[Rfam]
RNA sequence: CCCUAGCCCAGAUGGAAGGGAAAAUCCUUUUCUUUUUUUUCUUUAAAAAAAGAAAAGAUUGGAAUGACAGCUGGAAAUAGC
Numbered sequence: 001c002c003c004u005a006g007c008c009c010a011g012a013u014g015g016a017a018g019g020g021a022a023a024a025u026c027c028u029u030u031u032c033u034u035u036u037u038u039u040u041c042u043u044u045a046a047a048a049a050a051a052g053a054a055a056a057g058a059u060u061g062g063a064a065u066g067a068c069a070g071c072u073g074g075a076a077a078u079a080g081c
Stems, first nucleotide, its partner, number of pairs: 009073003013069002018065001023060004029055011

Rfam assigns this 81-nucleotide RNA from Flavobacterium psychrophilum to the family "Flavo-1 RNA". The sequence is in the family's curated seed alignment. Rfam 15.1 lists 7,497 matches to the family in 411 species. The organism belongs to Flavobacterium psychrophilum, within Bacteria.